Shown here is a 60-nucleotide RNA from Alkalibaculum bacchi, a member of the family "Fluoride riboswitch aptamer (crcB RNA motif)". Rfam links the family to the GO terms positive regulation of gene expression and response to fluoride. The base pairs follow the family's consensus structure, which is taken from published work.
RNA sequence: CAAACAAUAGGUGAUGGAGUUCACCUUUAAUCGCCAAUGGCUAAUGACUCCUGCUGGUGU
Number, nucleotide and partner (000 for none) at each position: 001c000002a000003a000004a000005c000006a000007a000008u000009a000010g025011g024012u023013g022014a000015u000016g051017g050018a049019g048020u047021u046022c013023a012024c011025c010026u000027u000028u000029a000030a000031u000032c000033g041034c040035c039036a000037a000038u000039g035040g034041c033042u000043a000044a000045u000046g021047a020048c019049u018050c017051c016052u000053g000054c000055u000056g000057g000058u000059g000060u000